Overview: The record is an 89-nucleotide RNA from Branchiostoma belcheri, which matches "mir-2060 microRNA precursor family" in Rfam. Rfam links the family to the GO terms RISC complex and miRNA-mediated post-transcriptional gene silencing. It scores 70 bits against the family's covariance model.
RNA sequence: ACCUGUUAGUGGAUGGUGUUUAGCACCAAGGACAUGUAUGUUACCUGUUAGUGGAUGGUGUUCAGCACCAAGGACAUGUAUGUUACCUG
Numbered sequence: 001a002c003c004u005g006u007u008a009g010u011g012g013a014u015g016g017u018g019u020u021u022a023g024c025a026c027c028a029a030g031g032a033c034a035u036g037u038a039u040g041u042u043a044c045c046u047g048u049u050a051g052u053g054g055a056u057g058g059u060g061u062u063c064a065g066c067a068c069c070a071a072g073g074a075c076a077u078g079u080a081u082g083u084u085a086c087c088u089g
Stems, first nucleotide, its partner, number of pairs: 001079002004076003014070007022062007032048003036044003